[Rfam]
RNA sequence: CUUGCAGAGGUUAUUGGCAUUCUGUCCACCUCCAUCCACCACUUCUAUCUCUCAUCAACAAGGAGAAUCAUAUGGACGGAGGUGGGCAUCCUGCCAAGUGAACUCUGUUAG
Numbered sequence: 001c002u003u004g005c006a007g008a009g010g011u012u013a014u015u016g017g018c019a020u021u022c023u024g025u026c027c028a029c030c031u032c033c034a035u036c037c038a039c040c041a042c043u044u045c046u047a048u049c050u051c052u053c054a055u056c057a058a059c060a061a062g063g064a065g066a067a068u069c070a071u072a073u074g075g076a077c078g079g080a081g082g083u084g085g086g087c088a089u090c091c092u093g094c095c096a097a098g099u100g101a102a103c104u105c106u107g108u109u110a111g
Base pairs, nucleotide, nucleotide: 011101014097015096016095017094018093019092023088024087025086026085027084028083029082030081031080032079033078
Notes
The record is a 111-nucleotide RNA from Musa acuminata, which matches "MIR394 microRNA precursor family" in Rfam. Gene Ontology terms of the family: miRNA-mediated post-transcriptional gene silencing and RISC complex. The family's consensus secondary structure was predicted with WAR. On this family, see Jones-Rhoades and Bartel, Mol Cell 2004: "Computational identification of plant microRNAs and their targets, including a stress-induced miRNA". The organism belongs to Musa acuminata, within Eukaryota.